RNA sequence: UGAAUUUGAAUAUGUUUACCGUAGACAGUAGGUGCCUUAAGGCUUAAUUUCCUACCGAGGUGUUCUGAUAGAGCGUCAACCUAUGAUGACUUAUCAAGCCUUCGUAAUUCUACGGAGGCUUUUUUCAUGAAGAG
Numbered sequence: 001u002g003a004a005u006u007u008g009a010a011u012a013u014g015u016u017u018a019c020c021g022u023a024g025a026c027a028g029u030a031g032g033u034g035c036c037u038u039a040a041g042g043c044u045u046a047a048u049u050u051c052c053u054a055c056c057g058a059g060g061u062g063u064u065c066u067g068a069u070a071g072a073g074c075g076u077c078a079a080c081c082u083a084u085g086a087u088g089a090c091u092u093a094u095c096a097a098g099c100c101u102u103c104g105u106a107a108u109u110c111u112a113c114g115g116a117g118g119c120u121u122u123u124u125u126c127a128u129g130a131a132g133a134g
Base pairs, nucleotide, nucleotide: 028055029054030053031052032051034043035042036041098119099118100117101116102115103114104113105112106111
A member of the RNA family "Ribosomal protein L10 leader" from Paenibacillus lutimineralis, 134 nucleotides long. The family's consensus secondary structure was predicted with CMfinder. By type it is a cis-regulatory leader. The organism belongs to Paenibacillus, within Bacteria.